This 86-nucleotide RNA sequence from Lactococcus hircilactis belongs to the Rfam family "ctRNA". The family's consensus secondary structure was predicted with ILM. Taxonomically the source falls in Lactococcus (Bacteria, Bacillota, Bacilli, Lactobacillales). Rolling circle replication plasmids contain a number of mechanisms to maintain a low copy number. One of these methods is to transcribe a small RNA called ctRNA (for counter-transcribed RNA) than is transcribed on the opposite strand to RepB the replication initiation protein. ctRNA binds to the mRNA of repB and causes translational inhibition.
RNA sequence: UAGAAAACUGCUCCUUUGUGAGUGAUUUUAGAUAGGCAUGAAGAAAAUCUGACCAAAGAAUUGUUCUUCAUGCUUUUAUUAUAUCA
Numbered sequence: 001u002a003g004a005a006a007a008c009u010g011c012u013c014c015u016u017u018g019u020g021a022g023u024g025a026u027u028u029u030a031g032a033u034a035g036g037c038a039u040g041a042a043g044a045a046a047a048u049c050u051g052a053c054c055a056a057a058g059a060a061u062u063g064u065u066c067u068u069c070a071u072g073c074u075u076u077u078a079u080u081a082u083a084u085c086a
Stems, first nucleotide, its partner, number of pairs: 004029004009024005034075012